[Rfam]
RNA sequence: AGAAAAGAAAGGUCUGUUAUCACCUUGAACUGGCCUCUUACGUUCUUUAGGGAUAUUGAAGUCACUGUUAUUGGGUGAAUCAUUUUGCUUCUGAAUGGAUAAUGAUUCAGUAAACAGCGAUACAUGU
Numbered sequence: 001a002g003a004a005a006a007g008a009a010a011g012g013u014c015u016g017u018u019a020u021c022a023c024c025u026u027g028a029a030c031u032g033g034c035c036u037c038u039u040a041c042g043u044u045c046u047u048u049a050g051g052g053a054u055a056u057u058g059a060a061g062u063c064a065c066u067g068u069u070a071u072u073g074g075g076u077g078a079a080u081c082a083u084u085u086u087g088c089u090u091c092u093g094a095a096u097g098g099a100u101a102a103u104g105a106u107u108c109a110g111u112a113a114a115c116a117g118c119g120a121u122a123c124a125u126g127u
Stems, first nucleotide, its partner, number of pairs: 005047003011036002014033003062120002065117005076109007

Small nucleolar RNA snoR74: a 127-nucleotide sequence from Vanilla planifolia.
The base pairs follow the family's consensus structure, which was predicted with WAR.
The match comes from Rfam's covariance-model search (70 bits).
By type it is an H/ACA-box small nucleolar RNA.